RNA: Betaproteobacteria transfer-messenger RNA
RNA sequence: UGCUUCUUUGGGUGUGGAUUUCUUUUGUUUUUGUGUUAUUAUUCUACUCAAGCUGUAUAUCUGGUUAACUGAAGGUUUUCUGGACGCGGGUUCGAGUCCCGCCGUCUCCACCAAUAGGAUAUUUACAACAUUAUAGUAUCUUAUUGAUGGGGACGCCAAGGUUUCGACAGGGAAAGAUAGGAAGACUGGCAGCCGGUAGGCGAUGACCGUAAAUCAAGCAAAACUCUUAAAUGCAAAUGACGAAAGUUACGCAUUAGCCGCCUAAUUUAGGCCGCUAGGAGCCUGAUCCACUUGGCAACAGAACGGAUUAAAAGGGAGCUUCGGCUCCCUUUUUA
Numbered sequence: 001u002g003c004u005u006c007u008u009u010g011g012g013u014g015u016g017g018a019u020u021u022c023u024u025u026u027g028u029u030u031u032u033g034u035g036u037u038a039u040u041a042u043u044c045u046a047c048u049c050a051a052g053c054u055g056u057a058u059a060u061c062u063g064g065u066u067a068a069c070u071g072a073a074g075g076u077u078u079u080c081u082g083g084a085c086g087c088g089g090g091u092u093c094g095a096g097u098c099c100c101g102c103c104g105u106c107u108c109c110a111c112c113a114a115u116a117g118g119a120u121a122u123u124u125a126c127a128a129c130a131u132u133a134u135a136g137u138a139u140c141u142u143a144u145u146g147a148u149g150g151g152g153a154c155g156c157c158a159a160g161g162u163u164u165c166g167a168c169a170g171g172g173a174a175a176g177a178u179a180g181g182a183a184g185a186c187u188g189g190c191a192g193c194c195g196g197u198a199g200g201c202g203a204u205g206a207c208c209g210u211a212a213a214u215c216a217a218g219c220a221a222a223a224c225u226c227u228u229a230a231a232u233g234c235a236a237a238u239g240a241c242g243a244a245a246g247u248u249a250c251g252c253a254u255u256a257g258c259c260g261c262c263u264a265a266u267u268u269a270g271g272c273c274g275c276u277a278g279g280a281g282c283c284u285g286a287u288c289c290a291c292u293u294g295g296c297a298a299c300a301g302a303a304c305g306g307a308u309u310a311a312a313a314g315g316g317a318g319c320u321u322c323g324g325c326u327c328c329c330u331u332u333u334u335a
Base pairs, nucleotide, nucleotide: 052193053192054191055190061189062188064186065185069181070180076174077173078172079171080170081169082168086102087101088100089099090098103155104154105153106152107151108150109149194209195208196207197206279293280292281291284310285309286308287307288306289305311332312331313330314329315328316327317326318325319324